A member of the RNA family "mir-454 microRNA precursor family" from Polypterus senegalus, 104 nucleotides long. Pairs were carried over by alignment from the consensus structure, which was predicted with RNAalifold.
[Rfam]
Nucleotides: 104
Stems, first nucleotide, its partner, number of pairs: 020090010030077009041067004045062001
Number, partner (000 for none) and nucleotide at each position: 001000u002000g003000a004000g005000a006000c007000u008000c009000u010000c011000c012000u013000u014000a015000a016000u017000g018000a019000u020090g021089a022088g023087a024086c025085c026084c027083u028082a029081u030077c031076a032075a033074u034073g035072u036071u037070g038069c039000c040000u041067c042066u043065g044064c045062u046000u047000u048000u049000c050000u051000g052000u053000g054000u055000a056000u057000u058000u059000g060000u061000g062045g063000a064044g065043u066042a067041g068000u069038g070037c071036a072035a073034u074033a075032u076031u077030g078000c079000u080000u081029a082028u083027a084026g085025g086024g087023u088022c089021u090020u091000g092000a093000c094000c095000u096000u097000g098000g099000g100000g101000u102000u103000u104000a